[Rfam]
RNA sequence: GGUCAACACUCUGGAGAGAGAGGGUUUUGCCUCCGCCGAAGGGAUAACGAUCUCAGGCACCAAGACAGAGGGGGCAUC
Numbered sequence: 001g002g003u004c005a006a007c008a009c010u011c012u013g014g015a016g017a018g019a020g021a022g023g024g025u026u027u028u029g030c031c032u033c034c035g036c037c038g039a040a041g042g043g044a045u046a047a048c049g050a051u052c053u054c055a056g057g058c059a060c061c062a063a064g065a066c067a068g069a070g071g072g073g074g075c076a077u078c
Stems, first nucleotide, its partner, number of pairs: 007072001009070005020033004035058003038054002042052002